[Rfam]
RNA: Small nucleolar RNA SNORD82
RNA sequence: AUCAUAAAUGAUGAAUGACAUAAGGACUGAAUACUGAAACUUAGGAUCACAUUGUAAUAGACUGAUGUGC
Numbered sequence: 001a002u003c004a005u006a007a008a009u010g011a012u013g014a015a016u017g018a019c020a021u022a023a024g025g026a027c028u029g030a031a032u033a034c035u036g037a038a039a040c041u042u043a044g045g046a047u048c049a050c051a052u053u054g055u056a057a058u059a060g061a062c063u064g065a066u067g068u069g070c
Base pairs, nucleotide, nucleotide: 003069004068005067006066